About this RNA
The record is a 154-nucleotide RNA sequence from Actinacidiphila oryziradicis, which matches "c-di-AMP riboswitch aptamer (ydaO/yuaA leader)" in Rfam. The organism belongs to Actinacidiphila, within Bacteria.
Nucleotides: 154
Base pairs, nucleotide, nucleotide: 011138012137013136014135018033019032020031021030022029034133035132036131037130038129039128044055045054056118057117058116064090065089066088067087068086069085070084071083072082073081074080093112094111095110096109
Number, partner (000 for none) and nucleotide at each position: 001000g002000g003000g004000c005000c006000g007000c008000u009000u010000c011138c012137g013136c014135u015000g016000a017000g018033u019032c020031c021030g022029g023000c024000u025000c026000c027000g028000g029022c030021c031020g032019g033018a034133g035132c036131c037130g038129g039128g040000g041000a042000c043000c044055c045054a046000a047000g048000u049000g050000u051000u052000u053000u054045u055044g056118g057117g058116g059000u060000g061000a062000a063000u064090c065089g066088g067087c068086u069085g070084u071083a072082u073081g074080u075000c076000u077000c078000g079000u080074a081073c082072g083071u084070a085069c086068a087067g088066c089065c090064g091000u092000a093112g094111g095110g096109c097000g098000a099000c100000c101000u102000u103000c104000c105000g106000a107000c108000a109096g110095c111094c112093c113000g114000a115000a116058c117057c118056c119000g120000a121000c122000a123000g124000c125000u126000a127000a128039c129038c130037c131036g132035g133034u134000a135014g136013g137012c138011g139000g140000u141000c142000c143000a144000c145000g146000g147000a148000a149000g150000g151000a152000g153000c154000u